[Rfam]
RNA sequence: AAUCGGCAUACGACAAAGAGGACGUGUCCUCAAAGCUGAGCCGAGGGGAAUGAGCCUCGCCAACAGCACCCUAUGGUGGAAAGGCGGAACAUAAACAGGAUGGGUAGAGUUCGGUAGGCCGAACGGUUCGAAGAAGUCAGGCCCA
Numbered sequence: 001a002a003u004c005g006g007c008a009u010a011c012g013a014c015a016a017a018g019a020g021g022a023c024g025u026g027u028c029c030u031c032a033a034a035g036c037u038g039a040g041c042c043g044a045g046g047g048g049a050a051u052g053a054g055c056c057u058c059g060c061c062a063a064c065a066g067c068a069c070c071c072u073a074u075g076g077u078g079g080a081a082a083g084g085c086g087g088a089a090c091a092u093a094a095a096c097a098g099g100a101u102g103g104g105u106a107g108a109g110u111u112c113g114g115u116a117g118g119c120c121g122a123a124c125g126g127u128u129c130g131a132a133g134a135a136g137u138c139a140g141g142c143c144c145a
Stems, first nucleotide, its partner, number of pairs: 003044005011038002014035001018031005046056002057087005067078004101145005107138002110135003117128004
The record is a 145-nucleotide RNA, which matches "RT-3 RNA" in Rfam. The family's RNA type in Rfam is small RNA.